[Rfam]
RNA sequence: CUCUGGUCAAUUAAGCGAGAUUAUAAAGGUUUACGGACUUUUAUACGGUGCUACCAGACCAAAGGAGCUCUAUUCCUUCCUCAGAUAAUAAAGAGGUAAAAACAAAAUCAGUAAAAGGCAUUUAGUAGCUUUAGGUGAAAGAUGCCUUUUAUU
Numbered sequence: 001c002u003c004u005g006g007u008c009a010a011u012u013a014a015g016c017g018a019g020a021u022u023a024u025a026a027a028g029g030u031u032u033a034c035g036g037a038c039u040u041u042u043a044u045a046c047g048g049u050g051c052u053a054c055c056a057g058a059c060c061a062a063a064g065g066a067g068c069u070c071u072a073u074u075c076c077u078u079c080c081u082c083a084g085a086u087a088a089u090a091a092a093g094a095g096g097u098a099a100a101a102a103c104a105a106a107a108u109c110a111g112u113a114a115a116a117g118g119c120a121u122u123u124a125g126u127a128g129c130u131u132u133a134g135g136u137g138a139a140a141g142a143u144g145c146c147u148u149u150u151a152u153u
Stems, first nucleotide, its partner, number of pairs: 003057005015051002022045009079096004110153013128136002
RNA: RT-14 RNA